Source information
The record is a 106-nucleotide RNA sequence from Solanum commersonii, which matches "Small nucleolar RNA Z103" in Rfam. It scores 68 bits against the family's covariance model. Pairs were carried over by alignment from the consensus structure, which was predicted with PFOLD. NCBI's taxonomy places the organism under Eukaryota, Streptophytina, eudicotyledons, Solanoideae, Solanum.
RNA sequence: AUUGAAGUGAUGAAUAUUUCCCCAGAUGAUCGAAGCUGAAAUUACUGAGCGCUUUUUAUGUAUCUUCUCCUUUUAGGGAAAAUCCAAGCCAGAUCUUCUUGUUGUU
Numbered sequence: 001a002u003u004g005a006a007g008u009g010a011u012g013a014a015u016a017u018u019u020c021c022c023c024a025g026a027u028g029a030u031c032g033a034a035g036c037u038g039a040a041a042u043u044a045c046u047g048a049g050c051g052c053u054u055u056u057u058a059u060g061u062a063u064c065u066u067c068u069c070c071u072u073u074u075a076g077g078g079a080a081a082a083u084c085c086a087a088g089c090c091a092g093a094u095c096u097u098c099u100u101g102u103u104g105u106u
Stems, first nucleotide, its partner, number of pairs: 001106001003104003